[Rfam]
RNA sequence: AUAACAAGUUGGCGAUGACAAAGGCCCAUGUGGCCGAGUUUGAAAGAACUAUUCACUUAACUGACC
Numbered sequence: 001a002u003a004a005c006a007a008g009u010u011g012g013c014g015a016u017g018a019c020a021a022a023g024g025c026c027c028a029u030g031u032g033g034c035c036g037a038g039u040u041u042g043a044a045a046g047a048a049c050u051a052u053u054c055a056c057u058u059a060a061c062u063g064a065c066c
Stems, first nucleotide, its partner, number of pairs: 007062004012056001014054002023035004037050005
RNA: DUF3800-II RNA